The family of this 70-nucleotide sequence is "Fluoride riboswitch aptamer (crcB RNA motif)".
Gene Ontology terms of the family: positive regulation of gene expression and response to fluoride.

Nucleotides: 070
Stems, first nucleotide, its partner, number of pairs: 010025004016061006044051002
Number, partner (000 for none) and nucleotide at each position: 001000g002000a003000u004000g005000a006000u007000a008000g009000u010025g011024g012023u013022g014000a015000u016061g017060a018059g019058g020057u021056c022013c023012a024011c025010c026000u027000u028000g029000g030000u031000u032000u033000a034000u035000g036000c037000c038000a039000a040000a041000a042000c043000c044051g045050c046000u047000a048000c049000a050045g051044c052000u053000a054000a055000u056021g057020a058019c059018u060017u061016c062000u063000a064000a065000a066000u067000a068000a069000a070000a